Description
The family of this 99-nucleotide sequence from Limimaricola hongkongensis is "TPP riboswitch aptamer (THI element)". The family's consensus secondary structure is taken from published work. Vitamin B(1) in its active form thiamin pyrophosphate (TPP) is an essential coenzyme that is synthesised by coupling of pyrimidine and thiazole moieties in bacteria. The previously detected thiamin-regulatory element, thi box was extended, resulting in a new, highly conserved RNA secondary structure, the THI element, which is widely distributed in eubacteria and also occurs in some archaea. Analysis of operon structures identified a large number of new candidate thiamin-regulated genes, mostly transporters, in various prokaryotic organisms. The THI element is a riboswitch that directly binds to TPP to regulate gene expression through a variety of mechanisms in archaea, bacteria and eukaryotes. through a variety of mechanisms in archaea, bacteria and eukaryotes.

[Rfam]
RNA sequence: GCGCCCACCUCGGGGGGCCACUGGCUGAGAUGCGCGUCGCGCGGACCCGUUGAACCUGAACCGGAUCACACCGGCGGAGGGAAGGUACGGGACACAUGC
Numbered sequence: 001g002c003g004c005c006c007a008c009c010u011c012g013g014g015g016g017g018c019c020a021c022u023g024g025c026u027g028a029g030a031u032g033c034g035c036g037u038c039g040c041g042c043g044g045a046c047c048c049g050u051u052g053a054a055c056c057u058g059a060a061c062c063g064g065a066u067c068a069c070a071c072c073g074g075c076g077g078a079g080g081g082a083a084g085g086u087a088c089g090g091g092a093c094a095c096a097u098g099c
Base pairs, nucleotide, nucleotide: 007086008085009084010083011049012048013047014046017025018024019023032042033041034040035039055080056079057078061074062073063072064071